Description:
DUF3268 RNA: a 117-nucleotide RNA sequence. It is annotated as a small RNA.
RNA sequence: GGCAGGGCUUGCGUUCAGGCUCUCGGAACGUUUAAGGAUAACGUCAAACCUGGUUCAAGGGAAUCAGGGAUCCGUUACGGAUCUUGCGCAAUGAGCAGAUCCACAACAACGCAGGUC
Numbered sequence: 001g002g003c004a005g006g007g008c009u010u011g012c013g014u015u016c017a018g019g020c021u022c023u024c025g026g027a028a029c030g031u032u033u034a035a036g037g038a039u040a041a042c043g044u045c046a047a048a049c050c051u052g053g054u055u056c057a058a059g060g061g062a063a064u065c066a067g068g069g070a071u072c073c074g075u076u077a078c079g080g081a082u083c084u085u086g087c088g089c090a091a092u093g094a095g096c097a098g099a100u101c102c103a104c105a106a107c108a109a110c111g112c113a114g115g116u117c
Stems, first nucleotide, its partner, number of pairs: 006117010024074004028044005049068007079102003084098004